[Rfam]
RNA sequence: CUGCGGGGAUGAUCACCCUGAACUCUCUCUUGCUGAUGGGACAGUGAAGUUUUAGAUCUCAUUCUGAGUAGC
Numbered sequence: 001c002u003g004c005g006g007g008g009a010u011g012a013u014c015a016c017c018c019u020g021a022a023c024u025c026u027c028u029c030u031u032g033c034u035g036a037u038g039g040g041a042c043a044g045u046g047a048a049g050u051u052u053u054a055g056a057u058c059u060c061a062u063u064c065u066g067a068g069u070a071g072c
Base pairs, nucleotide, nucleotide: 001071002070003069004068
Dot-bracket structure: ((((...............................................................)))).
Overview
A member of the RNA family "Small nucleolar RNA SNORD26" from Sterrhoptilus dennistouni, 72 nucleotides long. It scores 59 bits against the family's covariance model. Rfam 15.1 lists 451 matches to the family in 401 species. The base pairs follow the family's consensus structure, which was predicted with PFOLD. For this family Rfam cites "A mammalian gene with introns instead of exons generating stable RNA products" (Tycowski et al., Nature, 1996). Rfam links the family to the GO terms nucleolus and RNA processing. Taxonomically the source falls in Sterrhoptilus (Eukaryota, Teleostomi, Tetrapoda, Australaves).